RNA sequence: ACAAAAUGAAAACGAGCUGUUCGUAUAUCCUCAAAGAUAAGGUUUGAGGGUUUCUACAGGGAACCGUAAAUUCCUGGCUACGAAUAGGAUGCAUUUCGCA
Numbered sequence: 001a002c003a004a005a006a007u008g009a010a011a012a013c014g015a016g017c018u019g020u021u022c023g024u025a026u027a028u029c030c031u032c033a034a035a036g037a038u039a040a041g042g043u044u045u046g047a048g049g050g051u052u053u054c055u056a057c058a059g060g061g062a063a064c065c066g067u068a069a070a071u072u073c074c075u076g077g078c079u080a081c082g083a084a085u086a087g088g089a090u091g092c093a094u095u096u097c098g099c100a
Stems, first nucleotide, its partner, number of pairs: 018086008029049007059075005
RNA: Purine riboswitch aptamer
Organism: Paenibacillus sp. NFR01